[Rfam]
Nucleotides: 075
Stems, first nucleotide, its partner, number of pairs: 013042004019075007026038001046064005
Number, partner (000 for none) and nucleotide at each position: 001000u002000u003000g004000c005000a006000a007000g008000u009000u010000c011000a012000a013042g014041g015040c016039c017000a018000c019075a020074g021073c022072a023071g024070a025069a026038g027000c028000a029000u030000u031000c032000a033000c034000u035000g036000c037000a038026c039016g040015g041014c042013c043000u044000g045000u046064c047063a048062g049061g050060u051000c052000c053000c054000a055000g056000u057000g058000a059000u060050a061049u062048c063047u064046g065000c066000a067000a068000a069025u070024u071023c072022u073021g074020c075019u